RNA sequence: GGCAAAAACUCGAAGUAGAAUAGUUUAGUAGGGUCAGGUGAUCUUUUUAAUCUGCUCUACUUCAAAUUUGGGCCC
Numbered sequence: 001g002g003c004a005a006a007a008a009c010u011c012g013a014a015g016u017a018g019a020a021u022a023g024u025u026u027a028g029u030a031g032g033g034u035c036a037g038g039u040g041a042u043c044u045u046u047u048u049a050a051u052c053u054g055c056u057c058u059a060c061u062u063c064a065a066a067u068u069u070g071g072g073c074c075c
Stems, first nucleotide, its partner, number of pairs: 001074003006069003012063008021054003025050004030045001032043004
This 75-nucleotide RNA from Haemonchus placei belongs to the Rfam family "mir-5928 microRNA precursor family".
NCBI's taxonomy places the organism under Eukaryota, Metazoa, Bilateria, Protostomia, Haemonchus.